[Rfam]
RNA: Group II catalytic intron D1-D4-7
Organism: Paraburkholderia xenovorans
RNA sequence: CCCGCUGUGCGACCAGAGGUGGCCUAGGAAAGCAUCUUUCGUUGGCGACGACGCUGGAUGAAGCCUUUCCGACAACGUAGUCCAACUGUAUGCGCCGCCGCGAGGUGACGUGUAGAAGCUCUGAGCAGCGACGGGGCCGAGACG
Numbered sequence: 001c002c003c004g005c006u007g008u009g010c011g012a013c014c015a016g017a018g019g020u021g022g023c024c025u026a027g028g029a030a031a032g033c034a035u036c037u038u039u040c041g042u043u044g045g046c047g048a049c050g051a052c053g054c055u056g057g058a059u060g061a062a063g064c065c066u067u068u069c070c071g072a073c074a075a076c077g078u079a080g081u082c083c084a085a086c087u088g089u090a091u092g093c094g095c096c097g098c099c100g101c102g103a104g105g106u107g108a109c110g111u112g113u114a115g116a117a118g119c120u121c122u123g124a125g126c127a128g129c130g131a132c133g134g135g136g137c138c139g140a141g142a143c144g
Stems, first nucleotide, its partner, number of pairs: 002019002005016003028069005033060005040053005089114003098105002118137006